The record is an 87-nucleotide RNA sequence from Clostridium chromiireducens, which matches "c-di-GMP-I riboswitch aptamer" in Rfam.
[Rfam]
RNA sequence: CAUUGAUAAUAGCACACUUCUCGAAAGAUAAGGUCGCAAAGCUAUGGGUCUAAAGAAAUUUAUUUCAAUGACUGCCAGGCUGCCAAA
Numbered sequence: 001c002a003u004u005g006a007u008a009a010u011a012g013c014a015c016a017c018u019u020c021u022c023g024a025a026a027g028a029u030a031a032g033g034u035c036g037c038a039a040a041g042c043u044a045u046g047g048g049u050c051u052a053a054a055g056a057a058a059u060u061u062a063u064u065u066c067a068a069u070g071a072c073u074g075c076c077a078g079g080c081u082g083c084c085a086a087a
Stems, first nucleotide, its partner, number of pairs: 012037002017032003021028002040081004045077003048072003055066004
Dot-bracket structure: ...........((...(((.((....)).)))...))..((((.((((((....((((....))))...)))..)))))))......
Background: It scores 78 bits against the family's covariance model.